[Rfam]
A member of the RNA family "Glycine riboswitch aptamer" from Clostridium thailandense, 65 nucleotides long.
About the family: This family represents the bacterial glycine riboswitch.
NCBI's taxonomy places the organism under Bacteria, Bacillati, Eubacteriales, Clostridiaceae, Clostridium.

RNA sequence: AAUCUCUGGAAAGCUUUAUGCACCGAUGGAGUAAAACUCUCAGGUUAAUAGACAGAGGUAAAAGG
Numbered sequence: 001a002a003u004c005u006c007u008g009g010a011a012a013g014c015u016u017u018a019u020g021c022a023c024c025g026a027u028g029g030a031g032u033a034a035a036a037c038u039c040u041c042a043g044g045u046u047a048a049u050a051g052a053c054a055g056a057g058g059u060a061a062a063a064g065g
Stems, first nucleotide, its partner, number of pairs: 002059007015020001022045003025041002029039003